Cyanobacterial functional RNA 1: a 56-nucleotide RNA. It is one of the family's seed sequences. It is annotated as a small RNA. On this family, see Voss et al., BMC Genomics 2007: "A motif-based search in bacterial genomes identifies the ortholog of the small RNA Yfr1 in all lineages of cyanobacteria". Pairs were carried over by alignment from the consensus structure, which is taken from published work.
RNA sequence: GUGCGGCUUUACGCCGCACACUCCUCACACCACCACGCCCGGCGCGCCCGGGUUUU
Number, nucleotide and partner (000 for none) at each position: 001g019002u018003g017004c016005g015006g014007c013008u000009u000010u000011a000012c000013g007014c006015c005016g004017c003018a002019c001020a000021c000022u000023c000024c000025u000026c000027a000028c000029a000030c000031c000032a000033c000034c000035a000036c000037g053038c052039c051040c050041g049042g048043c000044g000045c000046g000047c000048c042049c041050g040051g039052g038053u037054u000055u000056u000